Shown here is a 112-nucleotide sequence from Nicotiana attenuata, a member of the family "Plastid-psbA-1 3UTR RNA". The family is grouped with related families in Rfam's "Plastid-psbA 3UTR RNA clan". Plastid psbA-1 is a non-coding RNA (ncRNA) present in plastids. It was identified in inverted repeat sequences in the 3 prime untranslate region (3UTR) of photosystem II quinone-binding protein (psbA). It is annotated as a cis-regulatory element.
RNA sequence: CUGAAGCCCCAUCUACAAAUGGAUAAAAUUCUAGUCUAGUCUAUAAGAGGUCUAGAAAAGAAAGGAACAAUAAUCACUUUCUUGUUCUAUCAAGAGGGUGCUAUAUUUCAUU
Numbered sequence: 001c002u003g004a005a006g007c008c009c010c011a012u013c014u015a016c017a018a019a020u021g022g023a024u025a026a027a028a029u030u031c032u033a034g035u036c037u038a039g040u041c042u043a044u045a046a047g048a049g050g051u052c053u054a055g056a057a058a059a060g061a062a063a064g065g066a067a068c069a070a071u072a073a074u075c076a077c078u079u080u081c082u083u084g085u086u087c088u089a090u091c092a093a094g095a096g097g098g099u100g101c102u103a104u105a106u107u108u109c110a111u112u
Base pairs, nucleotide, nucleotide: 009022010021011020012019062112063111065109066108067107070104071103072102075100076099077098079096080095081094082093083092